[Rfam]
RNA sequence: AAUGCAGGUUGUUCUAUCGCUGUUCCGGAUAAAACCGGAAGAGAGGAAAGUCCGGGCAACGCAGGGCAUCCCGCUUUCUAACGGAAAGGGAUUUAGGAAUGAAAACCUGAAUUACGGAUUAGUGCAACAGAAAAUAUACCGCCCCGACUUUGUCGGAGUAAGGGUGAAAACGUGCGGUAAGAGCGCACGAGCAUUACAGGCGACUGUAGUGGUUUGUAAACCCCGGGAGUUGAAAGACCAAAUAGGCUAACAUCCCAACUUUACGUCGGGAUAAAGGGCUGCCCGUCCGAUGUUAGUGGGUAGGUCGUUAGAGAUAAACGGCAACGUUUAUAGUGGAUAAAUGAUAGAAAUCCUGAGCAAUCAGGAAACAGAACCCGGCUUAUAGACCUGCAUUUUUU
Numbered sequence: 001a002a003u004g005c006a007g008g009u010u011g012u013u014c015u016a017u018c019g020c021u022g023u024u025c026c027g028g029a030u031a032a033a034a035c036c037g038g039a040a041g042a043g044a045g046g047a048a049a050g051u052c053c054g055g056g057c058a059a060c061g062c063a064g065g066g067c068a069u070c071c072c073g074c075u076u077u078c079u080a081a082c083g084g085a086a087a088g089g090g091a092u093u094u095a096g097g098a099a100u101g102a103a104a105a106c107c108u109g110a111a112u113u114a115c116g117g118a119u120u121a122g123u124g125c126a127a128c129a130g131a132a133a134a135u136a137u138a139c140c141g142c143c144c145c146g147a148c149u150u151u152g153u154c155g156g157a158g159u160a161a162g163g164g165u166g167a168a169a170a171c172g173u174g175c176g177g178u179a180a181g182a183g184c185g186c187a188c189g190a191g192c193a194u195u196a197c198a199g200g201c202g203a204c205u206g207u208a209g210u211g212g213u214u215u216g217u218a219a220a221c222c223c224c225g226g227g228a229g230u231u232g233a234a235a236g237a238c239c240a241a242a243u244a245g246g247c248u249a250a251c252a253u254c255c256c257a258a259c260u261u262u263a264c265g266u267c268g269g270g271a272u273a274a275a276g277g278g279c280u281g282c283c284c285g286u287c288c289g290a291u292g293u294u295a296g297u298g299g300g301u302a303g304g305u306c307g308u309u310a311g312a313g314a315u316a317a318a319c320g321g322c323a324a325c326g327u328u329u330a331u332a333g334u335g336g337a338u339a340a341a342u343g344a345u346a347g348a349a350a351u352c353c354u355g356a357g358c359a360a361u362c363a364g365g366a367a368a369c370a371g372a373a374c375c376c377g378g379c380u381u382a383u384a385g386a387c388c389u390g391c392a393u394u395u396u397u398u
Base pairs, nucleotide, nucleotide: 001394002393003392004391005390006389007388008387009386010385011383012349013348014347015346016345017344018343020043021042023040024039025038026037027036028035048381049380050379052378053377054376055375056374057232058231059230060229064284065283066282067281069228070227071226072225073224074088075087076086077085078084089115090113091112092111093110094109095108096107097106116223117222122221123220124217125216126215139163140162141159142158144156145155146154147153148152171189172188173187174186175185176184191213192211193210194209195208196207197206198205199204236306237305238304239303246297247296248295249294250293251292276288277287278286279285314331315330316329317328318327319326320325

Record summary: Shown here is a 398-nucleotide RNA from Pedobacter sp. Leaf216, a member of the family "Bacterial RNase P class A". It is annotated as a ribozyme. NCBI's taxonomy places the organism under Bacteria, Pseudomonadati, Sphingobacteriia, Sphingobacteriales, Pedobacter.